[Rfam]
RNA: small nucleolar RNA snoR134
RNA sequence: CCGCACGGUUGCACCCCGGGCUGCUCGGAUGUUGAUGACGAUGGAAGCCCCAAUGCUCGUGCUAGAGCGACCUGCCGACUGUGUUGCAGUUCCGCUUGUUUUCACCGACGGAUCUGUGUCAAAACGCCGGCUAUAUUU
Numbered sequence: 001c002c003g004c005a006c007g008g009u010u011g012c013a014c015c016c017c018g019g020g021c022u023g024c025u026c027g028g029a030u031g032u033u034g035a036u037g038a039c040g041a042u043g044g045a046a047g048c049c050c051c052a053a054u055g056c057u058c059g060u061g062c063u064a065g066a067g068c069g070a071c072c073u074g075c076c077g078a079c080u081g082u083g084u085u086g087c088a089g090u091u092c093c094g095c096u097u098g099u100u101u102u103c104a105c106c107g108a109c110g111g112a113u114c115u116g117u118g119u120c121a122a123a124a125c126g127c128c129g130g131c132u133a134u135a136u137u138u
Base pairs, nucleotide, nucleotide: 003062004061005060006059007058008057011056012055018050019049020048021047022046024043025041026040027039074131075130076129077128079126082121083120085118086117087116088115089114091112092111093110
Dot-bracket structure: ..((((((..((.....(((((.((((...........))).)..)))))....))))))))...........((((.(..((.(((((.(((................))).))))).))....).)))).......